[Rfam]
RNA sequence: GUCGAGUUGGGUAGCGUCAACCUAUAACCUGAGUAGGGGCAUCAGAGUGGUGGGAUAAUGGUUCGGCUCACCAAACAGGGCCCGUCUGUGCAAUUAUCUGGCCCGCCCGUUCCAAGUUGAGAGAUGGACCUUGUGAUUUGUGUGAAGGCCUGGGUCACUUGGUUCCUAAAGUAGAGGGUACGGCGUGAGGCUGGUCUCACAGAGCAGCGAAGACCUCUUGCUCUCAAUACUGGAAGGAUAACGGGCCGGUGCAUUACUCAUCCACAUUGCCUGGUUGGGUUGGGCUCCUUAUAGACCACCACUUUU
Numbered sequence: 001g002u003c004g005a006g007u008u009g010g011g012u013a014g015c016g017u018c019a020a021c022c023u024a025u026a027a028c029c030u031g032a033g034u035a036g037g038g039g040c041a042u043c044a045g046a047g048u049g050g051u052g053g054g055a056u057a058a059u060g061g062u063u064c065g066g067c068u069c070a071c072c073a074a075a076c077a078g079g080g081c082c083c084g085u086c087u088g089u090g091c092a093a094u095u096a097u098c099u100g101g102c103c104c105g106c107c108c109g110u111u112c113c114a115a116g117u118u119g120a121g122a123g124a125u126g127g128a129c130c131u132u133g134u135g136a137u138u139u140g141u142g143u144g145a146a147g148g149c150c151u152g153g154g155u156c157a158c159u160u161g162g163u164u165c166c167u168a169a170a171g172u173a174g175a176g177g178g179u180a181c182g183g184c185g186u187g188a189g190g191c192u193g194g195u196c197u198c199a200c201a202g203a204g205c206a207g208c209g210a211a212g213a214c215c216u217c218u219u220g221c222u223c224u225c226a227a228u229a230c231u232g233g234a235a236g237g238a239u240a241a242c243g244g245g246c247c248g249g250u251g252c253a254u255u256a257c258u259c260a261u262c263c264a265c266a267u268u269g270c271c272u273g274g275u276u277g278g279g280u281u282g283g284g285c286u287c288c289u290u291a292u293a294g295a296c297c298a299c300c301a302c303u304u305u306u
Stems, first nucleotide, its partner, number of pairs: 001040003004023001006021005028037003044305010056293002058290001060288001061285006067278002070275004076269001078263003084257002088254003093250001098249008107237002110235005116228008126165005133158008142149002166171001173218005184209003191202003
Dot-bracket structure: ((((.(((((......))))).)....(((....))))))...((((((((((..(((.(((((((((.((((..(.(((...((..(((..(....((((((((.((.(((((.((((((((..(((((..((((((((.((....)).))))))))..)))))(....).(((((......(((....(((......)))....)))....)))))..))))))))..)))))))....))))))))).))).))...))).....)..)))).)).))))))..).).))..)))))))))).
This 306-nucleotide RNA from Castanea mollissima belongs to the Rfam family "Plant signal recognition particle RNA". Its Rfam clan is "SRP clan". The family's RNA type in Rfam is non-coding RNA gene. Rfam links the family to the GO terms signal recognition particle, endoplasmic reticulum targeting and SRP-dependent cotranslational protein targeting to membrane, signal sequence recognition. It scores 216 bits against the family's covariance model.